[Rfam]
Nucleotides: 125
Base pairs, nucleotide, nucleotide: 011112012111013110014109018029019028020027030107031106032105033104034103035102040051052092053091054090060069061068062067072086073085074084075083
Number, partner (000 for none) and nucleotide at each position: 001000c002000a003000c004000a005000a006000g007000g008000g009000u010000g011112u012111g013110c014109c015000g016000a017000a018029g019028c020027g021000c022000a023000u024000a025000u026000g027020c028019g029018c030107g031106c032105g033104g034103g035102g036000g037000a038000a039000c040051c041000a042000a043000a044000u045000g046000u047000u048000u049000u050000c051040g052092g053091g054090g055000u056000g057000u058000a059000u060069c061068u062067u063000g064000c065000a066000a067062a068061a069060g070000a071000c072086g073085g074084u075083c076000a077000g078000c079000u080000c081000u082000u083075g084074g085073c086072c087000g088000a089000a090054c091053c092052c093000g094000g095000c096000a097000g098000c099000u100000a101000a102035c103034c104033u105032c106031g107030c108000a109014g110013g111012c112011g113000g114000a115000a116000g117000g118000g119000a120000g121000c122000a123000u124000g125000a